[Rfam]
RNA sequence: AUGGGAACAGCACGGCCGCAAAUCUGACUCGUCCCGCGGGGGACUCCCCGGAGGGGCUCGGGAUUGCGGAGGUGC
Numbered sequence: 001a002u003g004g005g006a007a008c009a010g011c012a013c014g015g016c017c018g019c020a021a022a023u024c025u026g027a028c029u030c031g032u033c034c035c036g037c038g039g040g041g042g043a044c045u046c047c048c049c050g051g052a053g054g055g056g057c058u059c060g061g062g063a064u065u066g067c068g069g070a071g072g073u074g075c
Base pairs, nucleotide, nucleotide: 010075011074012073013072016069017068018067019066020065021064024062025061031057032056033055034054035053

The record is a 75-nucleotide RNA, which matches "S15-Halobacteria ribosomal protein leader" in Rfam. Rfam classes the family as a cis-regulatory leader. On this family, see Eckert and Weinberg, BMC Microbiol 2020: "Discovery of 20 novel ribosomal leader candidates in bacteria and archaea".